Shown here is a 569-nucleotide part of an RNA from Aphis glycines, a member of the family "Eukaryotic large subunit ribosomal RNA". Rfam 15.1 lists 107,465 matches to the family in 2,616 species. The match comes from Rfam's covariance-model search (2526 bits). NCBI's taxonomy places the organism under Eukaryota, Hexapoda, Neoptera, Hemiptera, Aphis.

RNA sequence: CCAUCCGAAGUUUCCCUCAGGAUAGCUGGCGCCGAUGUGUCCCGCCCGUUCGCGGGCGUCAGGACGCCGGUGGGACUCCGCGCUGUACGGCGCGGUAACAACACGCUCGUAACACGGAGGAUGUCUCAUACGGUAAAGCGAAUGAUUAGAGGACAUUGGGGCCGAAACGACCUCAACCUAUUCUCAAACUAUAAAUGGGUGAGAUCGCCGGCUUUACCUGGUACACCGCGUGAACCGCGUGCGAAGCCGGCGACGGAACCCUAGGCGCUUAGUGGGCCAUUUUUGGUAAGCAGAACUGGCGCUGCGGGAUGAACCGAACGCCGAGUUAAGGCGCCGAAAUCGACGCGUAUUCAGAGACCAUGAAAGGCGUUGGUUGCUGAUGACAGCAGGACGGUGGCCAUGGAAGUCGGAAUCCGCUAAGGAGUGUGUAACAACUCACCUGCCGAAGCAACUAGCUCUGAAAAUGGAUGGCGCUGGAGCGUCGUGCCUAUACUCGGCCGUCGGCGGCACAGUGGGGCCGGUCGUCGCUCGCGGCGGCCGGUCCCGGCAAGCCCCGACGAGUAGGAUGG
Numbered sequence: 001c002c003a004u005c006c007g008a009a010g011u012u013u014c015c016c017u018c019a020g021g022a023u024a025g026c027u028g029g030c031g032c033c034g035a036u037g038u039g040u041c042c043c044g045c046c047c048g049u050u051c052g053c054g055g056g057c058g059u060c061a062g063g064a065c066g067c068c069g070g071u072g073g074g075a076c077u078c079c080g081c082g083c084u085g086u087a088c089g090g091c092g093c094g095g096u097a098a099c100a101a102c103a104c105g106c107u108c109g110u111a112a113c114a115c116g117g118a119g120g121a122u123g124u125c126u127c128a129u130a131c132g133g134u135a136a137a138g139c140g141a142a143u144g145a146u147u148a149g150a151g152g153a154c155a156u157u158g159g160g161g162c163c164g165a166a167a168c169g170a171c172c173u174c175a176a177c178c179u180a181u182u183c184u185c186a187a188a189c190u191a192u193a194a195a196u197g198g199g200u201g202a203g204a205u206c207g208c209c210g211g212c213u214u215u216a217c218c219u220g221g222u223a224c225a226c227c228g229c230g231u232g233a234a235c236c237g238c239g240u241g242c243g244a245a246g247c248c249g250g251c252g253a254c255g256g257a258a259c260c261c262u263a264g265g266c267g268c269u270u271a272g273u274g275g276g277c278c279a280u281u282u283u284u285g286g287u288a289a290g291c292a293g294a295a296c297u298g299g300c301g302c303u304g305c306g307g308g309a310u311g312a313a314c315c316g317a318a319c320g321c322c323g324a325g326u327u328a329a330g331g332c333g334c335c336g337a338a339a340u341c342g343a344c345g346c347g348u349a350u351u352c353a354g355a356g357a358c359c360a361u362g363a364a365a366g367g368c369g370u371u372g373g374u375u376g377c378u379g380a381u382g383a384c385a386g387c388a389g390g391a392c393g394g395u396g397g398c399c400a401u402g403g404a405a406g407u408c409g410g411a412a413u414c415c416g417c418u419a420a421g422g423a424g425u426g427u428g429u430a431a432c433a434a435c436u437c438a439c440c441u442g443c444c445g446a447a448g449c450a451a452c453u454a455g456c457u458c459u460g461a462a463a464a465u466g467g468a469u470g471g472c473g474c475u476g477g478a479g480c481g482u483c484g485u486g487c488c489u490a491u492a493c494u495c496g497g498c499c500g501u502c503g504g505c506g507g508c509a510c511a512g513u514g515g516g517g518c519c520g521g522u523c524g525u526c527g528c529u530c531g532c533g534g535c536g537g538c539c540g541g542u543c544c545c546g547g548c549a550a551g552c553c554c555c556g557a558c559g560a561g562u563a564g565g566a567u568g569g
Stems, first nucleotide, its partner, number of pairs: 001569006011024001013022003028269006124204006131197001136192001137190002143186003148181001150179003156176006163169001206252009276300004281295005305316003320498005326492001330488003339485001341484001344481003365459003369456010386443005392416003398410002417421001422437001426435002499559006506553003